[Rfam]
RNA sequence: ACCGCGUGCUUGCCUACUAUUUAGUAGCUGAGAUACAUGUAUUUCUCCUGCUAUAUAGUAGGUAAGUACGCGGUUU
Numbered sequence: 001a002c003c004g005c006g007u008g009c010u011u012g013c014c015u016a017c018u019a020u021u022u023a024g025u026a027g028c029u030g031a032g033a034u035a036c037a038u039g040u041a042u043u044u045c046u047c048c049u050g051c052u053a054u055a056u057a058g059u060a061g062g063u064a065a066g067u068a069c070g071c072g073g074u075u076u
Stems, first nucleotide, its partner, number of pairs: 001074015017058004022053006030045002033042003
RNA: mir-7563 microRNA precursor family
Organism: Ameiurus melas